[Rfam]
RNA: ybhL leader
Organism: Rhizobium sp. NFR07
RNA sequence: UAGGCUUGCUGGAGCUCCGCAGCGGCGCCUGGGUCAGAAUUAUGGGGGCCCGACACCGUGAAUAAUUCCGGAGCUUAA
Numbered sequence: 001u002a003g004g005c006u007u008g009c010u011g012g013a014g015c016u017c018c019g020c021a022g023c024g025g026c027g028c029c030u031g032g033g034u035c036a037g038a039a040u041u042a043u044g045g046g047g048g049c050c051c052g053a054c055a056c057c058g059u060g061a062a063u064a065a066u067u068c069c070g071g072a073g074c075u076u077a078a
Stems, first nucleotide, its partner, number of pairs: 012076008023058003030052004035046001